RNA: Small nucleolar RNA SNORA28
Nucleotides: 122
Base pairs, nucleotide, nucleotide: 009044011042013036014035015034017032018031019030021028060115061114063112064111065110066109070108071107072106075103076102077101083096084095085094
Number, partner (000 for none) and nucleotide at each position: 001000a002000a003000g004000c005000a006000a007000c008000a009044c010000u011042c012000a013036g014035u015034g016000g017032c018031a019030g020000a021028u022000g023000a024000u025000g026000g027000a028021a029000a030019c031018u032017g033000a034015c035014a036013c037000a038000a039000u040000u041000u042011g043000u044009g045000c046000u047000u048000g049000c050000u051000a052000u053000a054000g055000c056000a057000a058000g059000a060115a061114a062000a063112u064111c065110u066109a067000a068000c069000c070108u071107a072106u073000u074000c075103u076102g077101g078000a079000g080000u081000u082000c083096u084095c085094u086000a087000c088000u089000c090000g091000g092000u093000g094085a095084g096083a097000c098000a099000a100000g101077c102076u103075g104000u105000u106072a107071u108070a109066u110065a111064g112063a113000c114061u115060u116000a117000a118000a119000u120000a121000g122000u